[Rfam]
RNA sequence: CGGAGAGAGUUGACGUAGUCUGGUGGAUAAGUAUUAUAAGAAUCGUAUUCAUUAGUUUGAAUAUGAUCAAAUAAUAUGUAUGCCAUCAAUGACUGUGCUGACAGCAUCGGCUGCACAAUCCGAACUAUGUCGACAUGUUGCUCAUUCUAUUAAUUUAGAGUGAUGUCUUGUGUUACGUUGUAAGGUUUGUUGCGUGUUGAUGUUGAUAAAUGUGUAAUUAUUUGUAAAAUAAUUAUGUCAGCGUAAAAGUCAACCACCUCUCCGACCCGUCUUGAAACACGG
Numbered sequence: 001c002g003g004a005g006a007g008a009g010u011u012g013a014c015g016u017a018g019u020c021u022g023g024u025g026g027a028u029a030a031g032u033a034u035u036a037u038a039a040g041a042a043u044c045g046u047a048u049u050c051a052u053u054a055g056u057u058u059g060a061a062u063a064u065g066a067u068c069a070a071a072u073a074a075u076a077u078g079u080a081u082g083c084c085a086u087c088a089a090u091g092a093c094u095g096u097g098c099u100g101a102c103a104g105c106a107u108c109g110g111c112u113g114c115a116c117a118a119u120c121c122g123a124a125c126u127a128u129g130u131c132g133a134c135a136u137g138u139u140g141c142u143c144a145u146u147c148u149a150u151u152a153a154u155u156u157a158g159a160g161u162g163a164u165g166u167c168u169u170g171u172g173u174u175a176c177g178u179u180g181u182a183a184g185g186u187u188u189g190u191u192g193c194g195u196g197u198u199g200a201u202g203u204u205g206a207u208a209a210a211u212g213u214g215u216a217a218u219u220a221u222u223u224g225u226a227a228a229a230u231a232a233u234u235a236u237g238u239c240a241g242c243g244u245a246a247a248a249g250u251c252a253a254c255c256a257c258c259u260c261u262c263c264g265a266c267c268c269g270u271c272u273u274g275a276a277a278c279a280c281g282g
Stems, first nucleotide, its partner, number of pairs: 001264007009254004017090001021088006094245010267282004
The record is a 282-nucleotide part of an RNA from Protostrongylus rufescens, which matches "Eukaryotic large subunit ribosomal RNA" in Rfam. Rfam's curators put it in the seed alignment. Its family is annotated with ribosome and structural constituent of ribosome in the Gene Ontology.